Shown here is a 118-nucleotide RNA from Nonomuraea cypriaca, a member of the family "Group II catalytic intron D1-D4-2". The organism belongs to Nonomuraea, within Bacteria. Group II introns are found in rRNA, tRNA and mRNA of organelles in fungi, plants and protists, and also in mRNA in bacteria. The base pairs follow the family's consensus structure.
RNA sequence: GAAGGUCUGGCCCUUCGGCGUCUUCUGCGGCGGAGACGUCAAAACACCUCAAACCGGGUUGGACACAAACGGUCGUGGUGAGCGUUGAGGACAAGGUGCACGUGAUGCGUCAUCCGGA
Numbered sequence: 001g002a003a004g005g006u007c008u009g010g011c012c013c014u015u016c017g018g019c020g021u022c023u024u025c026u027g028c029g030g031c032g033g034a035g036a037c038g039u040c041a042a043a044a045c046a047c048c049u050c051a052a053a054c055c056g057g058g059u060u061g062g063a064c065a066c067a068a069a070c071g072g073u074c075g076u077g078g079u080g081a082g083c084g085u086u087g088a089g090g091a092c093a094a095g096g097u098g099c100a101c102g103u104g105a106u107g108c109g110u111c112a113u114c115c116g117g118a
Stems, first nucleotide, its partner, number of pairs: 001016005017040009045117001047090006053079002056076001058074001060072001062070001095114004100110002